[Rfam]
RNA sequence: UUUUAAUUUUUUUUUUUUUUUUUUCCCCCCCCCCUUUUUUACCCCCCCGGGGGGGGGGGAAAAGGGGGGGGGGGGGGGUUUUUUUUGGGGGGGGGAAAAAAAAACCCCCCCCCCGGGGGGGGGGGGGGGGGGGGGGAAAAAAAAAAAACCCCCCCCCCGGGGGGGGGGUUUUUUUU
Number, nucleotide and partner (000 for none) at each position: 001u000002u000003u000004u000005a000006a000007u000008u000009u000010u000011u000012u000013u000014u000015u000016u145017u144018u143019u142020u000021u140022u139023u138024u137025c136026c135027c134028c133029c132030c131031c130032c129033c128034c127035u000036u125037u124038u123039u122040u000041a000042c055043c054044c053045c052046c000047c000048c000049g000050g000051g000052g045053g044054g043055g042056g114057g113058g112059g111060a000061a000062a000063a000064g000065g000066g000067g000068g000069g000070g000071g000072g000073g000074g000075g000076g000077g000078g000079u000080u000081u000082u000083u000084u000085u000086u000087g000088g000089g000090g000091g000092g000093g000094g000095g000096a000097a000098a000099a000100a000101a000102a000103a000104a000105c000106c000107c000108c000109c000110c000111c059112c058113c057114c056115g000116g000117g000118g000119g000120g000121g000122g039123g038124g037125g036126g000127g034128g033129g032130g031131g030132g029133g028134g027135g026136g025137a024138a023139a022140a021141a000142a019143a018144a017145a016146a000147a170148a169149c168150c167151c166152c165153c164154c163155c162156c161157c000158c000159g000160g000161g156162g155163g154164g153165g152166g151167g150168g149169u148170u147171u000172u000173u000174u000175u000176u000
RNA: Phenylalanine leader peptide
Organism: Chionoecetes opilio